RNA sequence: UCCCAGGCUGUGACUCUACAAAGGAAAGCACUUUCUGUUGUCGAAAGAAAAGAAAGCGCUUCCCUUUUGAGAAUUACGGUUUGAGA
Numbered sequence: 001u002c003c004c005a006g007g008c009u010g011u012g013a014c015u016c017u018a019c020a021a022a023g024g025a026a027a028g029c030a031c032u033u034u035c036u037g038u039u040g041u042c043g044a045a046a047g048a049a050a051a052g053a054a055a056g057c058g059c060u061u062c063c064c065u066u067u068u069g070a071g072a073a074u075u076a077c078g079g080u081u082u083g084a085g086a
Stems, first nucleotide, its partner, number of pairs: 001086002004083002007080007016071002020067005026061004031056005038051002
The family of this 86-nucleotide RNA sequence from Macaca mulatta is "mir-515 microRNA precursor family". Lineage of the source: Eukaryota > Bilateria > Haplorrhini > Cercopithecinae > Macaca. Pairs were carried over by alignment from the consensus structure, which was predicted with RNAalifold. Its family is annotated with RISC complex and miRNA-mediated post-transcriptional gene silencing in the Gene Ontology. A reference for the family is Bentwich et al. (2005), "Identification of hundreds of conserved and nonconserved human microRNAs", Nat Genet. Rfam's curators put it in the seed alignment. Rfam 15.1 lists 1,056 matches to the family in 27 species.